[Rfam]
RNA sequence: AGAAAGUGUACCUAGGGUUCCACACCGCCCCCGGCGGUGGUUUGGUCCAAGCGGUACAGGCAGCUGCGGGCAUAUUACCGCAUGCGGCUACACCGGUCGGGAUAAAAGCCCAGGCGGG
Numbered sequence: 001a002g003a004a005a006g007u008g009u010a011c012c013u014a015g016g017g018u019u020c021c022a023c024a025c026c027g028c029c030c031c032c033g034g035c036g037g038u039g040g041u042u043u044g045g046u047c048c049a050a051g052c053g054g055u056a057c058a059g060g061c062a063g064c065u066g067c068g069g070g071c072a073u074a075u076u077a078c079c080g081c082a083u084g085c086g087g088c089u090a091c092a093c094c095g096g097u098c099g100g101g102a103u104a105a106a107a108g109c110c111c112a113g114g115c116g117g118g
Stems, first nucleotide, its partner, number of pairs: 007058006015048002020045002022042001023039006060091001062089006093113001099111003
Shown here is a 118-nucleotide sequence from Desulfallas thermosapovorans, a member of the family "Guanidine-I riboswitch aptamer".
The base pairs follow the family's consensus structure.
The organism belongs to Desulfallas thermosapovorans, within Bacteria.
The match comes from Rfam's covariance-model search (63 bits).